The family of this 131-nucleotide RNA from Sulfuricurvum kujiense is "purD RNA motif". For this family Rfam cites "Identification of 22 candidate structured RNAs in bacteria using the CMfinder comparative genomics pipeline" (Weinberg et al., Nucleic Acids Res, 2007). It is annotated as a cis-regulatory element. Its family is annotated with regulation of gene expression in the Gene Ontology.

RNA sequence: GUAGACGUUUCGGGGUGUCGGUGGUCUUGUUUGAGCGCAUUCGCGUGAGAGAUCGCCGCCGGAAGAGACGCUCGAUGUGGCGCAAUUACAGCUUUGAAGAACCAAAGCUACUGCGAAACGCCCGCCCGGGC
Numbered sequence: 001g002u003a004g005a006c007g008u009u010u011c012g013g014g015g016u017g018u019c020g021g022u023g024g025u026c027u028u029g030u031u032u033g034a035g036c037g038c039a040u041u042c043g044c045g046u047g048a049g050a051g052a053u054c055g056c057c058g059c060c061g062g063a064a065g066a067g068a069c070g071c072u073c074g075a076u077g078u079g080g081c082g083c084a085a086u087u088a089c090a091g092c093u094u095u096g097a098a099g100a101a102c103c104a105a106a107g108c109u110a111c112u113g114c115g116a117a118a119c120g121c122c123c124g125c126c127c128g129g130g131c
Base pairs, nucleotide, nucleotide: 003072004071006070007069008068009067010066019058020057021056022055023054025052026051027050028049035046036045037044038043090109091108092107093106094105095104096103